[Rfam]
RNA sequence: CUUUGGGGGAACCUAGUGCCAGUGAUGUGCUGUGAAUGUGUUUUCAGCGCACCACUGUUCACUGGGUCUCUCCGGAG
Numbered sequence: 001c002u003u004u005g006g007g008g009g010a011a012c013c014u015a016g017u018g019c020c021a022g023u024g025a026u027g028u029g030c031u032g033u034g035a036a037u038g039u040g041u042u043u044u045c046a047g048c049g050c051a052c053c054a055c056u057g058u059u060c061a062c063u064g065g066g067u068c069u070c071u072c073c074g075g076a077g
Base pairs, nucleotide, nucleotide: 001077002076003075004074005073006072007071008070009069011067012066013065014064015063016062017061018060020057021056022055023054024053026051027050028049029048030047031046032045034041

This 77-nucleotide RNA sequence from Lymphocryptovirus macacinegamma10 belongs to the Rfam family "mir-BART3 microRNA precursor family".
Its Rfam clan is "mir-BART clan".
NCBI's taxonomy places the organism under Viruses, Duplodnaviria, Gammaherpesvirinae, Lymphocryptovirus, Lymphocryptovirus macacinegamma10.
Gene Ontology terms of the family: miRNA-mediated post-transcriptional gene silencing and RISC complex.
The family's consensus secondary structure was predicted with RNAalifold.